[Rfam]
RNA sequence: UCAUCGGGACGACCCGGUAGGGCAACGAAUCAAGCGGGACGACCCGC
Numbered sequence: 001u002c003a004u005c006g007g008g009a010c011g012a013c014c015c016g017g018u019a020g021g022g023c024a025a026c027g028a029a030u031c032a033a034g035c036g037g038g039a040c041g042a043c044c045c046g047c
Stems, first nucleotide, its partner, number of pairs: 001020001003018006034047005
RNA: Guanidine-II riboswitch aptamer (mini-ykkC)